[Rfam]
RNA sequence: AGGUGUCGGCCGGAACAUUCCGGCGGGCAGGUGUCAGCGAUGGUCGGGCCGCCACG
Numbered sequence: 001a002g003g004u005g006u007c008g009g010c011c012g013g014a015a016c017a018u019u020c021c022g023g024c025g026g027g028c029a030g031g032u033g034u035c036a037g038c039g040a041u042g043g044u045c046g047g048g049c050c051g052c053c054a055c056g
Stems, first nucleotide, its partner, number of pairs: 005028003009024004038056002041054004
Dot-bracket structure: ....(((.((((........)))).))).........((.((((......))))))
nhaA-I RNA: a 56-nucleotide RNA sequence from Xylophilus rhododendri. Rfam describes the family as follows. Acidobacteria, Alphaproteobacteria, Betaproteobacteria and Gammaproteobacteria, Verrucomicrobia, cand. division NC10. It is annotated as a riboswitch. The source organism's lineage runs through Bacteria, Pseudomonadati, Pseudomonadota, Betaproteobacteria and Xylophilus.